[Rfam]
RNA sequence: UAUUGCAAAGGUGAUGGAGCUCACCGAGAAAACUACCUUCGUGGUUGAUGGCUCCUGCGAAACG
Numbered sequence: 001u002a003u004u005g006c007a008a009a010g011g012u013g014a015u016g017g018a019g020c021u022c023a024c025c026g027a028g029a030a031a032a033c034u035a036c037c038u039u040c041g042u043g044g045u046u047g048a049u050g051g052c053u054c055c056u057g058c059g060a061a062a063c064g
Stems, first nucleotide, its partner, number of pairs: 010025004016055006035045003